[Rfam]
RNA sequence: CAUCCCAAUGAUGAUGAUAUGUAUUGUUAAAAGUAGUGCCUGAUCUAUAUAUUAUCAUUUGAUGAUAAAUACAUACUGAGGGAUG
Numbered sequence: 001c002a003u004c005c006c007a008a009u010g011a012u013g014a015u016g017a018u019a020u021g022u023a024u025u026g027u028u029a030a031a032a033g034u035a036g037u038g039c040c041u042g043a044u045c046u047a048u049a050u051a052u053u054a055u056c057a058u059u060u061g062a063u064g065a066u067a068a069a070u071a072c073a074u075a076c077u078g079a080g081g082g083a084u085g
Base pairs, nucleotide, nucleotide: 001085002084003083004082005081006080
A member of the RNA family "Small nucleolar RNA R21" from Gossypium stocksii, 85 nucleotides long. The literature on the family includes a 2001 paper in J Mol Biol by Barneche et al., "Identification of 66 box C/D snoRNAs in Arabidopsis thaliana: extensive gene duplications generated multiple isoforms predicting new ribosomal RNA 2'-O-methylation sites". The match comes from Rfam's covariance-model search (55 bits). The organism belongs to Gossypium, within Eukaryota.